Rfam assigns this 162-nucleotide RNA sequence from Aegilops tauschii to the family "U1 spliceosomal RNA". By type it is a spliceosomal small nuclear RNA. The match comes from Rfam's covariance-model search (93 bits). The base pairs follow the family's consensus structure, which is taken from published work. For this family Rfam cites "The uRNA database" (Zwieb, Nucleic Acids Res, 1997).

[Rfam]
RNA sequence: CUACUUACCUGGAUGGCGUCCAUGAGUGAUCAAUAAGGCUCAUGGCCUAGAUCAAUGGCUCACUUUGCACUUUGUGAGUGCGUUGAUCUAUCAUCUCAUUUUUGCGGGAGAGUGAACGUCGUAGUUUGUGAUAGAGGGGAUAUGCAUUCGCGCAGCCCCUAC
Numbered sequence: 001c002u003a004c005u006u007a008c009c010u011g012g013a014u015g016g017c018g019u020c021c022a023u024g025a026g027u028g029a030u031c032a033a034u035a036a037g038g039c040u041c042a043u044g045g046c047c048u049a050g051a052u053c054a055a056u057g058g059c060u061c062a063c064u065u066u067g068c069a070c071u072u073u074g075u076g077a078g079u080g081c082g083u084u085g086a087u088c089u090a091u092c093a094u095c096u097c098a099u100u101u102u103u104g105c106g107g108g109a110g111a112g113u114g115a116a117c118g119u120c121g122u123a124g125u126u127u128g129u130g131a132u133a134g135a136g137g138g139g140a141u142a143u144g145c146a147u148u149c150g151c152g153c154a155g156c157c158c159c160u161a162c
Stems, first nucleotide, its partner, number of pairs: 012120004016048001018046003023042005049089004056082002059078005091115003094111003099106001136160004143154003